[Rfam]
RNA sequence: GAAACGGGAAGCCGGCACUAGGCAACUGGGUAAGACCGGCGCCCCUGUCCCGCAAGGGACGGGUACU
Numbered sequence: 001g002a003a004a005c006g007g008g009a010a011g012c013c014g015g016c017a018c019u020a021g022g023c024a025a026c027u028g029g030g031u032a033a034g035a036c037c038g039g040c041g042c043c044c045c046u047g048u049c050c051c052g053c054a055a056g057g058g059a060c061g062g063g064u065a066c067u
Stems, first nucleotide, its partner, number of pairs: 011040005018029004044063008